[Rfam]
RNA sequence: UAGAGGUCAUAUGACUGACGGAAGUGGAGUACCACAUGAAGUAUGACUAGAUAAUGCCGACCGUCUGGGCGAUGACG
Numbered sequence: 001u002a003g004a005g006g007u008c009a010u011a012u013g014a015c016u017g018a019c020g021g022a023a024g025u026g027g028a029g030u031a032c033c034a035c036a037u038g039a040a041g042u043a044u045g046a047c048u049a050g051a052u053a054a055u056g057c058c059g060a061c062c063g064u065c066u067g068g069g070c071g072a073u074g075a076c077g
Stems, first nucleotide, its partner, number of pairs: 005048008015038001017065005024035004055071004

Shown here is a 77-nucleotide RNA from Anaerotignum neopropionicum, a member of the family "ZMP/ZTP riboswitch aptamer (pfl RNA motif)". The match comes from Rfam's covariance-model search (54 bits). Rfam links the family to the GO terms one-carbon metabolic process and regulation of purine nucleotide biosynthetic process.